[Rfam]
RNA sequence: GGAAGUCCUACAGGGGCGACCUGAGAACACAUCAUCAAGCAUAUAGUAAGAUCAAAUGCACCUUGAUGUGAUCUCAAGUCGCUCCUGUUGGACCCAU
Numbered sequence: 001g002g003a004a005g006u007c008c009u010a011c012a013g014g015g016g017c018g019a020c021c022u023g024a025g026a027a028c029a030c031a032u033c034a035u036c037a038a039g040c041a042u043a044u045a046g047u048a049a050g051a052u053c054a055a056a057u058g059c060a061c062c063u064u065g066a067u068g069u070g071a072u073c074u075c076a077a078g079u080c081g082c083u084c085c086u087g088u089u090g091g092a093c094c095c096a097u
Stems, first nucleotide, its partner, number of pairs: 007091002011087004016082004023075004028070007

The record is a 97-nucleotide RNA sequence from Camellia sinensis, which matches "MIR398 microRNA precursor family" in Rfam. Its family is annotated with miRNA-mediated post-transcriptional gene silencing and RISC complex in the Gene Ontology. The family has 14 seed sequences and 627 matches in Rfam 15.1. Lineage of the source: Eukaryota > Streptophytina > Euphyllophyta > Mesangiospermae > Camellia. On this family, see Xie et al., Plant Physiol 2005: "Expression of Arabidopsis MIRNA genes".